[Rfam]
RNA sequence: GGUGCGUGCCGUGUGGGGAGGCCCCUUGCCAACUAACCCUAAUGGCGCCCGCGCUCCCCGCGCCCGCCCGCUGUUUUAUUCGCUGACUUUCAGCGGACGAGGGGAGCGCUCGGGGGGGGGGGGGGGCGGAGGAAAGGGGUCCGACAUUAAAAAACGUCAGCGAGGGGGCUCCUCACCCUGGCCCGCUCUGGGGUCCCCGUCGCGCCGCCCGGAGUGCUCCCGCUCCCGCCGCCGCGCCGCGCGGAGGCCGCGGUCGGCCGGCCUAGAGCCACUGCCGCCGCGAAGAGCUUGUCUCUGUCAGCCUCGGCGACGGCCGGGAGCGGAAAGGCGGUUUCCCCUCAGCCCCGGGCACUCGGGGGUCCCAACAGAGUAAACUGGGAGCGGCGCCACCCGGCUGGAUAGCCGCGGCUCCUCAUCCAUGGGGUGCGCGGCCGGCGCCCUCCCGACACCU
Numbered sequence: 001g002g003u004g005c006g007u008g009c010c011g012u013g014u015g016g017g018g019a020g021g022c023c024c025c026u027u028g029c030c031a032a033c034u035a036a037c038c039c040u041a042a043u044g045g046c047g048c049c050c051g052c053g054c055u056c057c058c059c060g061c062g063c064c065c066g067c068c069c070g071c072u073g074u075u076u077u078a079u080u081c082g083c084u085g086a087c088u089u090u091c092a093g094c095g096g097a098c099g100a101g102g103g104g105a106g107c108g109c110u111c112g113g114g115g116g117g118g119g120g121g122g123g124g125g126g127c128g129g130a131g132g133a134a135a136g137g138g139g140u141c142c143g144a145c146a147u148u149a150a151a152a153a154a155c156g157u158c159a160g161c162g163a164g165g166g167g168g169c170u171c172c173u174c175a176c177c178c179u180g181g182c183c184c185g186c187u188c189u190g191g192g193g194u195c196c197c198c199g200u201c202g203c204g205c206c207g208c209c210c211g212g213a214g215u216g217c218u219c220c221c222g223c224u225c226c227c228g229c230c231g232c233c234g235c236g237c238c239g240c241g242c243g244g245a246g247g248c249c250g251c252g253g254u255c256g257g258c259c260g261g262c263c264u265a266g267a268g269c270c271a272c273u274g275c276c277g278c279c280g281c282g283a284a285g286a287g288c289u290u291g292u293c294u295c296u297g298u299c300a301g302c303c304u305c306g307g308c309g310a311c312g313g314c315c316g317g318g319a320g321c322g323g324a325a326a327g328g329c330g331g332u333u334u335c336c337c338c339u340c341a342g343c344c345c346c347g348g349g350c351a352c353u354c355g356g357g358g359g360u361c362c363c364a365a366c367a368g369a370g371u372a373a374a375c376u377g378g379g380a381g382c383g384g385c386g387c388c389a390c391c392c393g394g395c396u397g398g399a400u401a402g403c404c405g406c407g408g409c410u411c412c413u414c415a416u417c418c419a420u421g422g423g424g425u426g427c428g429c430g431g432c433c434g435g436c437g438c439c440c441u442c443c444c445g446a447c448a449c450c451u
Stems, first nucleotide, its partner, number of pairs: 004186003008182004013176006020170005053107005065099002068096006082161006088154003189365001191363003195359001202334001204332004209328002222321007230309005249282005255277004260270003284296004378443004383439006403431005409424004